[Rfam]
RNA sequence: AUGUUAUAAAGAAAGGACGAGGGAUUAGACCCGAUGAUGCCUUAGCAACCCUUCGAUUGUCGAAGAAGGUGCUACAUUCUAUCCGCCAUGGCGGAAAAGAUAACAA
Numbered sequence: 001a002u003g004u005u006a007u008a009a010a011g012a013a014a015g016g017a018c019g020a021g022g023g024a025u026u027a028g029a030c031c032c033g034a035u036g037a038u039g040c041c042u043u044a045g046c047a048a049c050c051c052u053u054c055g056a057u058u059g060u061c062g063a064a065g066a067a068g069g070u071g072c073u074a075c076a077u078u079c080u081a082u083c084c085g086c087c088a089u090g091g092c093g094g095a096a097a098a099g100a101u102a103a104c105a106a
Stems, first nucleotide, its partner, number of pairs: 002105006013043004021032003026081004044073004049069002051065004077098001082095005
SAM riboswitch aptamer (S box leader): a 106-nucleotide RNA sequence from Flavobacterium commune. The organism belongs to Flavobacterium, within Bacteria. Its family is annotated with regulation of gene expression in the Gene Ontology. The match comes from Rfam's covariance-model search (78 bits).